Shown here is a 57-nucleotide RNA sequence from Vitis labrusca, a member of the family "Plastid-rps18 3UTR RNA". The literature on the family includes a 2023 paper in Plant Commun by Richter et al., "Retrograde signaling in plants: A critical review focusing on the GUN pathway and beyond". Plastid rps18 is a non-coding RNA (ncRNA) present in plastids. It was identified as a short stem-loop motif in the 3 prime untranslate region (3UTR) of rps18 gene.
[Rfam]
RNA sequence: UGCAAGUAUUUUACGAUUAAGAAGUAACUGCCUCUUGUACAGAUCGUGUAUAAAUCU
Dot-bracket structure: .................(((((.((....)).)))))....................